[Rfam]
RNA: RAGATH-18 RNA
RNA sequence: CUUGUGGACUGUUAUAUCAAAUGGGAGUAGCCUUUUUUCUUCAAGAGAUGAGGGCAAAAUCAGACAGGUUGAAGCAAGAA
Numbered sequence: 001c002u003u004g005u006g007g008a009c010u011g012u013u014a015u016a017u018c019a020a021a022u023g024g025g026a027g028u029a030g031c032c033u034u035u036u037u038u039c040u041u042c043a044a045g046a047g048a049u050g051a052g053g054g055c056a057a058a059a060u061c062a063g064a065c066a067g068g069u070u071g072a073a074g075c076a077a078g079a080a
Stems, first nucleotide, its partner, number of pairs: 001078005009067005022062003030055003034052002